[Rfam]
RNA sequence: UUCUGAAAAAGGCAGAGCAGGGGAAAUUUUGUGACGCAAAACUAAAGGGUCUAAGUCUCUUAAGAUAUGACAGCCAGUUGCCGCA
Number, nucleotide and partner (000 for none) at each position: 001u000002u000003c000004u000005g000006a000007a000008a000009a000010a000011g000012g037013c036014a000015g000016a000017g032018c031019a030020g029021g028022g027023g000024a000025a000026a000027u022028u021029u020030u019031g018032u017033g000034a000035c000036g013037c012038a000039a000040a079041a078042c077043u076044a000045a000046a000047g075048g074049g071050u070051c069052u000053a000054a000055g000056u065057c064058u063059c000060u000061u000062a000063a058064g057065a056066u000067a000068u000069g051070a050071c049072a000073g000074c048075c047076a043077g042078u041079u040080g000081c000082c000083g000084c000085a000
RNA: c-di-GMP-I riboswitch aptamer